[Rfam]
The record is a 117-nucleotide sequence from Prevotella sp. CAG:520, which matches "SAM-I/IV (S-adenosyl methionine) riboswitch aptamer" in Rfam.
RNA sequence: AAUUUACAUCAAGAACGCAGCAAUGCGUGCCAACCGAGCUUUAGGAAUAGAGCAUUCCAAAGAGCCACGGUGGCGAGCGAAAGCAGAUGUGGGCAUACGCCAAAAAAACUCAUUAUA
Numbered sequence: 001a002a003u004u005u006a007c008a009u010c011a012a013g014a015a016c017g018c019a020g021c022a023a024u025g026c027g028u029g030c031c032a033a034c035c036g037a038g039c040u041u042u043a044g045g046a047a048u049a050g051a052g053c054a055u056u057c058c059a060a061a062g063a064g065c066c067a068c069g070g071u072g073g074c075g076a077g078c079g080a081a082a083g084c085a086g087a088u089g090u091g092g093g094c095a096u097a098c099g100c101c102a103a104a105a106a107a108a109c110u111c112a113u114u115a116u117a
Stems, first nucleotide, its partner, number of pairs: 006090005015028005029074003034070003038065005092101003